The family of this 365-nucleotide RNA from Sphaerobacter thermophilus is "Bacterial RNase P class A". It scores 102 bits against the family's covariance model. Lineage of the source: Bacteria > Thermomicrobia > Sphaerobacterales > Sphaerobacteraceae > Sphaerobacter thermophilus.
RNA sequence: GGCGUGGGCAGGACGGUCGCUGGCCGUUCCGGCCAGAGGAAAGUCCGAGCUGCAUAGAGCGAGGGUGCCCGGCGAAAGCCGGGGCAGCGUUCGCCGGUGGCGCUGACAGUCCAGAUCGGCACCGUGGCGGGUACCCCGCCGCGGUGAGAGCAACAGAGACCAAUGCCGGGCCCUCUGCGGUCCGGAGUGAAAAGGGCAAUCCUCCCCGCAGCAAUCUCCGAAUGGGCCGCUAUCAGGUUGCUCGCCGAGGCCCGAAGUCGAGAGCAGCCACGGAGGCGACGACGUGGCCGGUCGGUGGCCACGAGCCAUCGGCCGAGACAGAUGACCGUCAAGAACAGAACUCGGCUUACUCGCCCACGCCAUUC
Numbered sequence: 001g002g003c004g005u006g007g008g009c010a011g012g013a014c015g016g017u018c019g020c021u022g023g024c025c026g027u028u029c030c031g032g033c034c035a036g037a038g039g040a041a042a043g044u045c046c047g048a049g050c051u052g053c054a055u056a057g058a059g060c061g062a063g064g065g066u067g068c069c070c071g072g073c074g075a076a077a078g079c080c081g082g083g084g085c086a087g088c089g090u091u092c093g094c095c096g097g098u099g100g101c102g103c104u105g106a107c108a109g110u111c112c113a114g115a116u117c118g119g120c121a122c123c124g125u126g127g128c129g130g131g132u133a134c135c136c137c138g139c140c141g142c143g144g145u146g147a148g149a150g151c152a153a154c155a156g157a158g159a160c161c162a163a164u165g166c167c168g169g170g171c172c173c174u175c176u177g178c179g180g181u182c183c184g185g186a187g188u189g190a191a192a193a194g195g196g197c198a199a200u201c202c203u204c205c206c207c208g209c210a211g212c213a214a215u216c217u218c219c220g221a222a223u224g225g226g227c228c229g230c231u232a233u234c235a236g237g238u239u240g241c242u243c244g245c246c247g248a249g250g251c252c253c254g255a256a257g258u259c260g261a262g263a264g265c266a267g268c269c270a271c272g273g274a275g276g277c278g279a280c281g282a283c284g285u286g287g288c289c290g291g292u293c294g295g296u297g298g299c300c301a302c303g304a305g306c307c308a309u310c311g312g313c314c315g316a317g318a319c320a321g322a323u324g325a326c327c328g329u330c331a332a333g334a335a336c337a338g339a340a341c342u343c344g345g346c347u348u349a350c351u352c353g354c355c356c357a358c359g360c361c362a363u364u365c
Base pairs, nucleotide, nucleotide: 001361002360003359004358005357006356007355008354009353011350012330013329014328015327016326017325018324020036021035022034023033024032025031026030041348042347043346045345046344047343048342049341050211051210052209053208059242063207064206065205067204068083069082070081071080072079084142085141087139088138143203144202148201149200150197151196166185167184168183169182170181171180172179215263216262217261218260223254224253225252226251227250228249234247236246237245238244267313268312269311